[Rfam]
RNA sequence: GUCAGUAACCCAGCCCUAAAGGGACUGGGCUUGUAAGAGUAAUCAAGCAAGCCGUACUGACCAGACCACCCUGAGCGCAGUCGUAAAGCCUACGGCAUAGCUCCCGGCUAGGGUAGCCGUUAUUUGAGUCACGACACCCUGUGGAUGCGUAGCUAGUCCCCUGCUCUGUCGCUUGUGAUUAAACAGUUCUAAGGUAACAGUUACAGUGUUGCAAGCCUAACAAGCUCUGAUAACAGGUCAAAGCUAACAUUAC
Numbered sequence: 001g002u003c004a005g006u007a008a009c010c011c012a013g014c015c016c017u018a019a020a021g022g023g024a025c026u027g028g029g030c031u032u033g034u035a036a037g038a039g040u041a042a043u044c045a046a047g048c049a050a051g052c053c054g055u056a057c058u059g060a061c062c063a064g065a066c067c068a069c070c071c072u073g074a075g076c077g078c079a080g081u082c083g084u085a086a087a088g089c090c091u092a093c094g095g096c097a098u099a100g101c102u103c104c105c106g107g108c109u110a111g112g113g114u115a116g117c118c119g120u121u122a123u124u125u126g127a128g129u130c131a132c133g134a135c136a137c138c139c140u141g142u143g144g145a146u147g148c149g150u151a152g153c154u155a156g157u158c159c160c161c162u163g164c165u166c167u168g169u170c171g172c173u174u175g176u177g178a179u180u181a182a183a184c185a186g187u188u189c190u191a192a193g194g195u196a197a198c199a200g201u202u203a204c205a206g207u208g209u210u211g212c213a214a215g216c217c218u219a220a221c222a223a224g225c226u227c228u229g230a231u232a233a234c235a236g237g238u239c240a241a242a243g244c245u246a247a248c249a250u251u252a253c
Base pairs, nucleotide, nucleotide: 001061002060003059004058005057006056007055010029011028012026013025015022016021030051031050032049033048064239065238066237069113070112071111072110119234120233121232122231123230124229126227127226128225129224134169135168138163141160143159144158145157146156150246151245152244153243154242171216172215173214174213175212176211177210178209179208183207184206186204187203189200190199
Dot-bracket structure: (((((((..((((.((....))..)).))((((..............))))...)))))))..(((..((((.....................................)))).....((((((.((((....((..(..(.((((...[[[[[.)))))..)....)).(((((((((...((.((.((........))..)).))))))))))).......)))).))))))..)))..]]]]].......
This 253-nucleotide RNA from Nodularia spumigena belongs to the Rfam family "HNH endonuclease-associated RNA and ORF (HEARO) RNA". It is annotated as a non-coding RNA gene. The family's consensus secondary structure is taken from published work. The literature on the family includes a 2009 paper in Nature by Weinberg et al., "Exceptional structured noncoding RNAs revealed by bacterial metagenome analysis". NCBI's taxonomy places the organism under Bacteria, Cyanobacteriota, Cyanophyceae, Nodulariaceae, Nodularia spumigena.